[Rfam]
RNA sequence: UGGUGGCUUGAUGAUCGCCUAUAUUCUCGCUGUCGCUUGCAUUACCAGCAUUGCGGUGGGUGGGCUUGUGGCAAUCGCCAAUU
Number, nucleotide and partner (000 for none) at each position: 001u000002g000003g000004u080005g079006g078007c077008u000009u000010g000011a000012u000013g076014a075015u074016c000017g072018c071019c070020u000021a069022u068023a067024u000025u000026c064027u063028c062029g061030c059031u000032g000033u056034c055035g054036c053037u000038u050039g049040c048041a000042u000043u000044a000045c000046c000047a000048g040049c039050a038051u000052u000053g036054c035055g034056g033057u000058g000059g030060g000061u029062g028063g027064g026065c000066u000067u023068g022069u021070g019071g018072c017073a000074a015075u014076c013077g007078c006079c005080a004081a000082u000083u000
RNA: Brucella melitensis small RNA 0117
Organism: Brucella melitensis